[Rfam]
RNA sequence: GAACACUAGCAAAGAAUCGCGAUUCGAAGCAUCACCUACUGAAAGGAAGUUUACUUGCCUUUGGAUUUGCUUUGGGGAAAGUCCUCGGACCUGUGGUAGAAAGUACCGUCUAUAAUUGAUCAUCCGUUUGCUUGGUUUGGUUGGCAUAGAUGGAGAACAUCCGGAGCCUUAAGCCAGAUUGCUUACGGCCGUUCGUCAUAGCACAGUAAUGCGAUUGUGGUUCAAGAACCAUAACACAACGGGGCUCACUCUUGCAGUGUU
Numbered sequence: 001g002a003a004c005a006c007u008a009g010c011a012a013a014g015a016a017u018c019g020c021g022a023u024u025c026g027a028a029g030c031a032u033c034a035c036c037u038a039c040u041g042a043a044a045g046g047a048a049g050u051u052u053a054c055u056u057g058c059c060u061u062u063g064g065a066u067u068u069g070c071u072u073u074g075g076g077g078a079a080a081g082u083c084c085u086c087g088g089a090c091c092u093g094u095g096g097u098a099g100a101a102a103g104u105a106c107c108g109u110c111u112a113u114a115a116u117u118g119a120u121c122a123u124c125c126g127u128u129u130g131c132u133u134g135g136u137u138u139g140g141u142u143g144g145c146a147u148a149g150a151u152g153g154a155g156a157a158c159a160u161c162c163g164g165a166g167c168c169u170u171a172a173g174c175c176a177g178a179u180u181g182c183u184u185a186c187g188g189c190c191g192u193u194c195g196u197c198a199u200a201g202c203a204c205a206g207u208a209a210u211g212c213g214a215u216u217g218u219g220g221u222u223c224a225a226g227a228a229c230c231a232u233a234a235c236a237c238a239a240c241g242g243g244g245c246u247c248a249c250u251c252u253u254g255c256a257g258u259g260u261u
Stems, first nucleotide, its partner, number of pairs: 002261005009255004015216006024075007043056003047052001080246002083244004095107004108113001116185001121181002125177001130174004143168003152162003218231005
Dot-bracket structure: .(((((..((((..((((((...(((((((............(((.(....).)))............)))))))....[[.[[[[........((((.....))))(....)..(....((..(....((((.........(((......(((.....)))...)))..))))..)..))...).........................)))))).(((((....))))).........]]]]]].....)))).)))))
RNA: RNase MRP